A member of the RNA family "MIR396 microRNA precursor family" from Brassica rapa, 135 nucleotides long.
[Rfam]
RNA sequence: GGUUAUAUUUUUCCACAGCUUUCUUGAACUUUCUUUUUCAUUUCCCUUAUUUUAGAGCCAAAAUAACUAAAAAUCUCUAACAUUUAACACUCUAGAAAAAAAAAAGCUCAAGAAAGCUGUGGGAAAACAUGACAA
Numbered sequence: 001g002g003u004u005a006u007a008u009u010u011u012u013c014c015a016c017a018g019c020u021u022u023c024u025u026g027a028a029c030u031u032u033c034u035u036u037u038u039c040a041u042u043u044c045c046c047u048u049a050u051u052u053u054a055g056a057g058c059c060a061a062a063a064u065a066a067c068u069a070a071a072a073a074u075c076u077c078u079a080a081c082a083u084u085u086a087a088c089a090c091u092c093u094a095g096a097a098a099a100a101a102a103a104a105a106g107c108u109c110a111a112g113a114a115a116g117c118u119g120u121g122g123g124a125a126a127a128c129a130u131g132a133c134a135a
Stems, first nucleotide, its partner, number of pairs: 003132004013122003017118006024111004029106004

Overview: The family has 26 seed sequences and 744 matches in Rfam 15.1. The base pairs follow the family's consensus structure, which was predicted with WAR.